TPP riboswitch aptamer (THI element): a 106-nucleotide RNA sequence from Azospirillum sp. RU38E. Taxonomically the source falls in Azospirillum (Bacteria, Pseudomonadota, Alphaproteobacteria, Azospirillaceae). A search with the family's covariance model found it, with a score of 72 bits. Rfam's curators write: Vitamin B(1) in its active form thiamin pyrophosphate (TPP) is an essential coenzyme that is synthesised by coupling of pyrimidine and thiazole moieties in bacteria. The previously detected thiamin-regulatory element, thi box was extended, resulting in a new, highly conserved RNA secondary structure, the THI element, which is widely distributed in eubacteria and also occurs in some archaea. Analysis of operon structures identified a large number of new candidate thiamin-regulated genes, mostly transporters, in various prokaryotic organisms. The THI element is a riboswitch that directly binds to TPP to regulate gene expression through a variety of mechanisms in archaea, bacteria and eukaryotes. through a variety of mechanisms in archaea, bacteria and eukaryotes.

RNA sequence: ACAUUCACUGGGGGGAGCCGAUGGGCGGCUGAGAGGUUCCGUGCCGGAACGACCCCUGGAACCUGAUCCGGCCAAGACCGGCGUAGGGACAGUGAGACAAGAUGCC
Numbered sequence: 001a002c003a004u005u006c007a008c009u010g011g012g013g014g015g016a017g018c019c020g021a022u023g024g025g026c027g028g029c030u031g032a033g034a035g036g037u038u039c040c041g042u043g044c045c046g047g048a049a050c051g052a053c054c055c056c057u058g059g060a061a062c063c064u065g066a067u068c069c070g071g072c073c074a075a076g077a078c079c080g081g082c083g084u085a086g087g088g089a090c091a092g093u094g095a096g097a098c099a100a101g102a103u104g105c106c
Base pairs, nucleotide, nucleotide: 006094007093008092009091010090011056012055013054014053017029018028019027020026036050037049038048039047040046062087063086064085065084068081069080070079071078